[Rfam]
RNA sequence: AUCCAUCUUCGGGGCAGGGUGAAAUUCCCGACCGGCGGUAUUUGAAGAUUCCCUCUUCAUCAGCCCGUGAGCUGUAAGAAAAGCUUCAACGCCUGUCUAGGCGUUGAAGCUAGACAUCUUUGCUUUUCUUAUUUGCUGAUCUGGUGUAAUUCCAGAGCCGACAGUACAGUCUGGAUGGGAGAAGAUGACG
Numbered sequence: 001a002u003c004c005a006u007c008u009u010c011g012g013g014g015c016a017g018g019g020u021g022a023a024a025u026u027c028c029c030g031a032c033c034g035g036c037g038g039u040a041u042u043u044g045a046a047g048a049u050u051c052c053c054u055c056u057u058c059a060u061c062a063g064c065c066c067g068u069g070a071g072c073u074g075u076a077a078g079a080a081a082a083g084c085u086u087c088a089a090c091g092c093c094u095g096u097c098u099a100g101g102c103g104u105u106g107a108a109g110c111u112a113g114a115c116a117u118c119u120u121u122g123c124u125u126u127u128c129u130u131a132u133u134u135g136c137u138g139a140u141c142u143g144g145u146g147u148a149a150u151u152c153c154a155g156a157g158c159c160g161a162c163a164g165u166a167c168a169g170u171c172u173g174g175a176u177g178g179g180a181g182a183a184g185a186u187g188a189c190g
Base pairs, nucleotide, nucleotide: 004187005186006185007184008183009182010181017029018028019027031170032169033160034159035068036067037066038065063158064157071136072135140156141155142154143153144152162173163172164171
Notes:
FMN riboswitch aptamer (RFN element): a 190-nucleotide RNA sequence from Fictibacillus enclensis. Pairs were carried over by alignment from the consensus structure, which is taken from published work. Rfam links the family to the GO term FMN binding.